[Rfam]
RNA sequence: CCGCGGCAGCGCAACCGGCGAUACGGCCCCCGAGGCCCGAGGUGGAUCUCCACCAGGAAGCGCUGCCGGAAGUUCUGCCUGCUGCAGACCCGUUCCGCCGCGCGCCUGGGCAGCCCCC
Numbered sequence: 001c002c003g004c005g006g007c008a009g010c011g012c013a014a015c016c017g018g019c020g021a022u023a024c025g026g027c028c029c030c031c032g033a034g035g036c037c038c039g040a041g042g043u044g045g046a047u048c049u050c051c052a053c054c055a056g057g058a059a060g061c062g063c064u065g066c067c068g069g070a071a072g073u074u075c076u077g078c079c080u081g082c083u084g085c086a087g088a089c090c091c092g093u094u095c096c097g098c099c100g101c102g103c104g105c106c107u108g109g110g111c112a113g114c115c116c117c118c
Stems, first nucleotide, its partner, number of pairs: 004068009015057002017106004042053004095113001097111003

A member of the RNA family "ZMP/ZTP riboswitch aptamer (pfl RNA motif)" from Methylibium petroleiphilum, 118 nucleotides long. The organism belongs to Methylibium petroleiphilum, within Bacteria. Pairs were carried over by alignment from the consensus structure, which is taken from published work. A search with the family's covariance model found it, with a score of 46 bits.